RNA: c-di-AMP riboswitch aptamer (ydaO/yuaA leader)
RNA sequence: AUUUGUCUAACGCUGAAUUCCUUAACGGGAAGCGGGGGAACCAUCGCGGCCGCGGCCGCUGGGGUGAAUCCGGAAGGAUAAUGAUAUCCGAAGGUAGGGCGACUCUCGCGCCCGAAUCCGACAGCUAACCUCGCAAGCGUAAUUUGAGAGAAUUC
Numbered sequence: 001a002u003u004u005g006u007c008u009a010a011c012g013c014u015g016a017a018u019u020c021c022u023u024a025a026c027g028g029g030a031a032g033c034g035g036g037g038g039a040a041c042c043a044u045c046g047c048g049g050c051c052g053c054g055g056c057c058g059c060u061g062g063g064g065u066g067a068a069u070c071c072g073g074a075a076g077g078a079u080a081a082u083g084a085u086a087u088c089c090g091a092a093g094g095u096a097g098g099g100c101g102a103c104u105c106u107c108g109c110g111c112c113c114g115a116a117u118c119c120g121a122c123a124g125c126u127a128a129c130c131u132c133g134c135a136a137g138c139g140u141a142a143u144u145u146g147a148g149a150g151a152a153u154u155c
Stems, first nucleotide, its partner, number of pairs: 011139004018031003032134006042061002062119003070094002097113004